Record summary: Streptomyces-metH RNA: a 131-nucleotide RNA from Streptomyces sp. B93. The source organism's lineage runs through Bacteria, Actinomycetota, Actinomycetes, Kitasatosporales and Streptomyces.
RNA sequence: CUCGUCCGUGUCGUGGACGGCCUGACGGCGGGGCCCCGGUCCCGGCUACCCUGGCGGCGUGCGUCCACUGGGAAAAGACCAGACGUGGGCGCAAAGCCGACAGCCGUCGCACUCCAGGGAGCCCGUUCAUG
Number, nucleotide and partner (000 for none) at each position: 001c000002u000003c000004g000005u000006c000007c000008g000009u000010g000011u000012c000013g000014u000015g000016g000017a000018c000019g000020g000021c000022c000023u000024g000025a000026c000027g000028g000029c000030g000031g000032g000033g000034c000035c000036c000037c000038g000039g000040u000041c000042c000043c000044g000045g000046c000047u000048a000049c000050c000051c000052u000053g000054g000055c000056g000057g000058c000059g000060u093061g092062c091063g090064u000065c088066c087067a086068c085069u000070g000071g000072g000073a000074a000075a000076a000077g000078a000079c000080c000081a000082g000083a000084c000085g068086u067087g066088g065089g000090c063091g062092c061093a060094a000095a000096g110097c109098c000099g108100a107101c106102a000103g000104c000105c000106g101107u100108c099109g097110c096111a000112c000113u000114c000115c000116a000117g000118g000119g000120a000121g000122c000123c000124c000125g000126u000127u000128c000129a000130u000131g000